[Rfam]
RNA: TD-1 RNA
Organism: Treponema pedis
RNA sequence: GUUAACCGUCGAGUUUGCCUGACGGCAAACGUCGUGAUUGUAUGCACUUUUUCAGGCUUUGCCUUGCAAAAGUGCGGAAAUUCGACAGUCCUCAAAAUCCGAUGAUUUUUGCGGCUGUCGAAUUUAUAA
Numbered sequence: 001g002u003u004a005a006c007c008g009u010c011g012a013g014u015u016u017g018c019c020u021g022a023c024g025g026c027a028a029a030c031g032u033c034g035u036g037a038u039u040g041u042a043u044g045c046a047c048u049u050u051u052u053c054a055g056g057c058u059u060u061g062c063c064u065u066g067c068a069a070a071a072g073u074g075c076g077g078a079a080a081u082u083c084g085a086c087a088g089u090c091c092u093c094a095a096a097a098u099c100c101g102a103u104g105a106u107u108u109u110u111g112c113g114g115c116u117g118u119c120g121a122a123u124u125u126a127u128a129a
Stems, first nucleotide, its partner, number of pairs: 011033002013030007044075008080123009090114002094109006